[Rfam]
RNA sequence: UAACGUAACACCAUCUUGGAGAACCGGACUAAUACUCCUACCGAGACUAUCCAAGUAAAAUACGUCUCUCAUACCUGUCUCUGAGGGUGAGACAGGAAUACUAUAACUU
Numbered sequence: 001u002a003a004c005g006u007a008a009c010a011c012c013a014u015c016u017u018g019g020a021g022a023a024c025c026g027g028a029c030u031a032a033u034a035c036u037c038c039u040a041c042c043g044a045g046a047c048u049a050u051c052c053a054a055g056u057a058a059a060a061u062a063c064g065u066c067u068c069u070c071a072u073a074c075c076u077g078u079c080u081c082u083g084a085g086g087g088u089g090a091g092a093c094a095g096g097a098a099u100a101c102u103a104u105a106a107c108u109u
Stems, first nucleotide, its partner, number of pairs: 015055006043068005074096007
RNA: PhotoRC-II RNA